[Rfam]
This 126-nucleotide RNA sequence from Oncorhynchus kisutch belongs to the Rfam family "Small nucleolar RNA SNORD10". Rfam 15.1 lists 433 matches to the family in 306 species. It scores 38 bits against the family's covariance model. A reference for the family is Huttenhofer et al. (2001), "RNomics: an experimental approach that identifies 201 candidates for novel, small, non-messenger RNAs in mouse", EMBO J. It is annotated as a C/D-box small nucleolar RNA.

RNA sequence: GUUUUAUUAAACUUGUGCUUGUCAACUGAUCCCGGAAUCCCCUGUGGCCUGGGUUGGCCUUCUGUCAGCUGGUUGUUACUGGCCCUCAGGGCUCUGGUUGCAUGAUCUGACUGUUGCCCUGAAAAC
Numbered sequence: 001g002u003u004u005u006a007u008u009a010a011a012c013u014u015g016u017g018c019u020u021g022u023c024a025a026c027u028g029a030u031c032c033c034g035g036a037a038u039c040c041c042c043u044g045u046g047g048c049c050u051g052g053g054u055u056g057g058c059c060u061u062c063u064g065u066c067a068g069c070u071g072g073u074u075g076u077u078a079c080u081g082g083c084c085c086u087c088a089g090g091g092c093u094c095u096g097g098u099u100g101c102a103u104g105a106u107c108u109g110a111c112u113g114u115u116g117c118c119c120u121g122a123a124a125a126c
Stems, first nucleotide, its partner, number of pairs: 001126004040091005046085002
Its family is annotated with nucleolus and RNA processing in the Gene Ontology.